The family of this 107-nucleotide RNA sequence from Actibacterium naphthalenivorans is "Guanidine-I riboswitch aptamer". Rfam links the family to the GO term regulation of gene expression.

[Rfam]
RNA sequence: GUGCAGGGUGUCUAGGGUUCCGUUCGCAACAUCGCGAAGCAGGUCCGAGAGAUGCCGCCGGCGCCGGAUACGGUGUCGGUACACGGCGGGACAAAAUCCCGGGAGAG
Numbered sequence: 001g002u003g004c005a006g007g008g009u010g011u012c013u014a015g016g017g018u019u020c021c022g023u024u025c026g027c028a029a030c031a032u033c034g035c036g037a038a039g040c041a042g043g044u045c046c047g048a049g050a051g052a053u054g055c056c057g058c059c060g061g062c063g064c065c066g067g068a069u070a071c072g073g074u075g076u077c078g079g080u081a082c083a084c085g086g087c088g089g090g091a092c093a094a095a096a097u098c099c100c101g102g103g104a105g106a107g
Stems, first nucleotide, its partner, number of pairs: 007056006015046002020043002022040001023038005057080008082102001084105001088100003
Pairs were carried over by alignment from the consensus structure.